[Rfam]
RNA sequence: GAUGGGGCUAUCCCGGCCAGGAGAAAAGCGCGACGCACCGCGCGCCUGCCCCAUCCUUUUGCAUUCGGUG
Numbered sequence: 001g002a003u004g005g006g007g008c009u010a011u012c013c014c015g016g017c018c019a020g021g022a023g024a025a026a027a028g029c030g031c032g033a034c035g036c037a038c039c040g041c042g043c044g045c046c047u048g049c050c051c052c053a054u055c056c057u058u059u060u061g062c063a064u065u066c067g068g069u070g
Stems, first nucleotide, its partner, number of pairs: 001055008011022003028045005036070005
Notes:
The record is a 70-nucleotide sequence from Allobosea sp. PAMC 26642, which matches "int-alpA RNA" in Rfam. The source organism's lineage runs through Bacteria, Pseudomonadati, Hyphomicrobiales, Alloboseaceae and Allobosea. A search with the family's covariance model found it, with a score of 48 bits. By type it is a small RNA. Acidobacteria (1 example), Planctomycetes (1 example), Proteobacteria.